[Rfam]
RNA sequence: UUGCCGUGAUGACUCUCACUAGGUUUCGCAUGUCGCUGAGUUCCAGUGAUGCCUCCUUUCUCUUGGCUAGCUGAGCAG
Numbered sequence: 001u002u003g004c005c006g007u008g009a010u011g012a013c014u015c016u017c018a019c020u021a022g023g024u025u026u027c028g029c030a031u032g033u034c035g036c037u038g039a040g041u042u043c044c045a046g047u048g049a050u051g052c053c054u055c056c057u058u059u060c061u062c063u064u065g066g067c068u069a070g071c072u073g074a075g076c077a078g
Base pairs, nucleotide, nucleotide: 001078002077003076004075

This 78-nucleotide sequence from Trichechus manatus belongs to the Rfam family "Small nucleolar RNA SNORD53/SNORD92". On this family, see Kiss-Laszlo et al., Cell 1996: "Site-specific ribose methylation of preribosomal RNA: a novel function for small nucleolar RNAs". Its family is annotated with RNA processing and nucleolus in the Gene Ontology. The base pairs follow the family's consensus structure. NCBI's taxonomy places the organism under Eukaryota, Metazoa, Teleostomi, Euteleostomi, Trichechus manatus. It scores 78 bits against the family's covariance model. It is annotated as a C/D-box small nucleolar RNA.